[Rfam]
RNA: Small nucleolar RNA SNORD67
RNA sequence: UGUCAGUGAUGAGUUGCACAUGAGGUCAAAGGUUAUGGCCCUUGUGGGGUCACCUGUGACACAGAUACACUUGUGAUGAUAAAGUCAAGUGCACAGGGGCCAUCUGAGACAGA
Numbered sequence: 001u002g003u004c005a006g007u008g009a010u011g012a013g014u015u016g017c018a019c020a021u022g023a024g025g026u027c028a029a030a031g032g033u034u035a036u037g038g039c040c041c042u043u044g045u046g047g048g049g050u051c052a053c054c055u056g057u058g059a060c061a062c063a064g065a066u067a068c069a070c071u072u073g074u075g076a077u078g079a080u081a082a083a084g085u086c087a088a089g090u091g092c093a094c095a096g097g098g099g100c101c102a103u104c105u106g107a108g109a110c111a112g113a
Stems, first nucleotide, its partner, number of pairs: 004112001006110001024062001025060004030055003037051005